Source information:
Shown here is a 97-nucleotide sequence, a member of the family "RT-4 RNA". By type it is a small RNA. The base pairs follow the family's consensus structure, which is taken from published work.
RNA sequence: UACACCGCAGGGUGUUGAAAUACACCUAACCAGUGGAAAUAAUACCGAUGCAGGCAGGGUCGAGUAAGAAUAUCAGAAAGACCUUGAGGUGAUAAGA
Numbered sequence: 001u002a003c004a005c006c007g008c009a010g011g012g013u014g015u016u017g018a019a020a021u022a023c024a025c026c027u028a029a030c031c032a033g034u035g036g037a038a039a040u041a042a043u044a045c046c047g048a049u050g051c052a053g054g055c056a057g058g059g060u061c062g063a064g065u066a067a068g069a070a071u072a073u074c075a076g077a078a079a080g081a082c083c084u085u086g087a088g089g090u091g092a093u094a095a096g097a
Stems, first nucleotide, its partner, number of pairs: 003035003010027006044090003055086006061076001064073002